[Rfam]
RNA sequence: GAUCUGUGAUAAGAAACAGCGAAAUCUAAGCACCAGAAAAUCAGCUGAUCUACAUGGUGUUUUGAUUUGUGUACGGUUCUGGGA
Numbered sequence: 001g002a003u004c005u006g007u008g009a010u011a012a013g014a015a016a017c018a019g020c021g022a023a024a025u026c027u028a029a030g031c032a033c034c035a036g037a038a039a040a041u042c043a044g045c046u047g048a049u050c051u052a053c054a055u056g057g058u059g060u061u062u063u064g065a066u067u068u069g070u071g072u073a074c075g076g077u078u079c080u081g082g083g084a
Stems, first nucleotide, its partner, number of pairs: 030060005038051001040049002
RNA: Small nucleolar RNA U2-19
Organism: Alligator mississippiensis